This 102-nucleotide RNA from Lederbergia lenta belongs to the Rfam family "Purine riboswitch aptamer". Taxonomically the source falls in Lederbergia (Bacteria, Bacillati, Bacillota, Caryophanales).
RNA sequence: AAGUGGAAGCUGGCGACCCUUCAUAUAAUUCCGCAAAUAAGGUGCGGAAGUCUCUACGUAGCCACCAUAAAAGGCUCGGCUAUGAAGGCAGUUUUUCCAAAA
Dot-bracket structure: .................((((((((...(((((((.......)))))))..........((((.........))))....))))))))..............
Numbered sequence: 001a002a003g004u005g006g007a008a009g010c011u012g013g014c015g016a017c018c019c020u021u022c023a024u025a026u027a028a029u030u031c032c033g034c035a036a037a038u039a040a041g042g043u044g045c046g047g048a049a050g051u052c053u054c055u056a057c058g059u060a061g062c063c064a065c066c067a068u069a070a071a072a073g074g075c076u077c078g079g080c081u082a083u084g085a086a087g088g089c090a091g092u093u094u095u096u097c098c099a100a101a102a
Stems, first nucleotide, its partner, number of pairs: 018088008029049007060076004

A search with the family's covariance model found it, with a score of 68 bits.